[Rfam]
RNA sequence: UUACGUCUUCGGGGCGGGGUGCAACUCCCCACCGGCGGUAUGGCGCGCAAGCGCCGAGCCCGCGAGCGCCUUUGCCUGACGGCAAAGGGUCAGCAGAUCUGGUGAAACGCCAGAGCCGACGGUAAUAGUCCGGAUGAGAGAAGACGACG
Number, nucleotide and partner (000 for none) at each position: 001u000002u000003a000004c146005g145006u144007c143008u142009u141010c140011g000012g000013g000014g000015c000016g000017g029018g028019g027020u000021g000022c000023a000024a000025c000026u000027c019028c018029c017030c000031a129032c128033c118034g117035g063036c062037g061038g060039u000040a000041u000042g000043g000044c000045g000046c000047g000048c000049a000050a000051g000052c000053g000054c000055c000056g000057a000058g116059c115060c038061c037062g036063c035064g000065a000066g094067c093068g000069c000070c000071u000072u000073u000074g000075c000076c000077u000078g000079a000080c000081g000082g000083c000084a000085a000086a000087g000088g000089g000090u000091c000092a000093g067094c066095a000096g000097a000098u114099c113100u112101g111102g110103u000104g000105a000106a000107a000108c000109g000110c102111c101112a100113g099114a098115g059116c058117c034118g033119a000120c132121g131122g130123u000124a000125a000126u000127a000128g032129u031130c122131c121132g120133g000134a000135u000136g000137a000138g000139a000140g010141a009142a008143g007144a006145c005146g004147a000148c000149g000
RNA: FMN riboswitch aptamer (RFN element)
Organism: Chromobacterium violaceum